Background
Bacterial RNase P class B: a 284-nucleotide RNA sequence from [Mycoplasma] mobile. The match comes from Rfam's covariance-model search (204 bits).
[Rfam]
RNA sequence: AGCACUUAGUCAAUUGCUGUAUUUUUAAUAUAGAGGAAAGUCCGCGCUAGCACUUGCUGAAACGCAAGUAAAGAUCAUGUUAAGUCUAAUAAACUUAAGCCUAGACGACAAGUGCCACAGAGACGAGCUUAUUAAUUUAAGGUGAAACGCGGUAAACUCCGUGAGCUAGAAACCCAAAUUAUGGUAGGGGAGCUUUCAAAAGGGAAUCGAACUAAUUGAAAGAAGUUUUAAACUUAGAUAAAUAAUUGACGCUACUUUUGUAGAACAGAACGCGGCUUAUUAGU
Number, nucleotide and partner (000 for none) at each position: 001a000002g000003c000004a284005c283006u282007u000008a280009g250010u249011c248012a247013a246014u245015u244016g000017c033018u032019g031020u030021a029022u028023u000024u000025u000026u000027a000028a022029u021030a020031u019032a018033g017034a000035g000036g000037a000038a278039a277040g276041u000042c275043c274044g273045c272046g271047c169048u168049a167050g166051c165052a069053c068054u067055u066056g065057c064058u000059g000060a000061a000062a000063c000064g057065c056066a055067a054068g053069u052070a000071a000072a000073g000074a000075u164076c163077a162078u161079g160080u098081u097082a096083a095084g094085u093086c000087u000088a000089a000090u000091a000092a000093a085094c084095u083096u082097a081098a080099g106100c104101c000102u000103a000104g100105a000106c099107g159108a158109c000110a000111a000112g157113u156114g153115c152116c151117a000118c000119a000120g000121a000122g000123a000124c000125g000126a000127g000128c141129u140130u139131a138132u000133u000134a000135a000136u000137u000138u131139a130140a129141g128142g000143u000144g000145a000146a000147a000148c000149g000150c000151g116152g115153u114154a000155a000156a113157c112158u108159c107160c079161g078162u077163g076164a075165g051166c050167u049168a048169g047170a000171a000172a000173c189174c188175c187176a000177a000178a000179u000180u000181a000182u000183g000184g000185u000186a000187g175188g174189g173190g000191a000192g000193c222194u221195u220196u219197c218198a217199a216200a000201a000202g000203g000204g000205a000206a000207u000208c000209g000210a000211a000212c000213u000214a000215a000216u199217u198218g197219a196220a195221a194222g193223a235224a234225g233226u232227u231228u000229u000230a000231a227232a226233c225234u224235u223236a000237g000238a000239u000240a000241a000242a000243u000244a015245a014246u013247u012248g011249a010250c009251g000252c263253u262254a261255c260256u000257u000258u000259u000260g255261u254262a253263g252264a000265a000266c000267a000268g000269a000270a000271c046272g045273c044274g043275g042276c040277u039278u038279a000280u008281u000282a006283g005284u004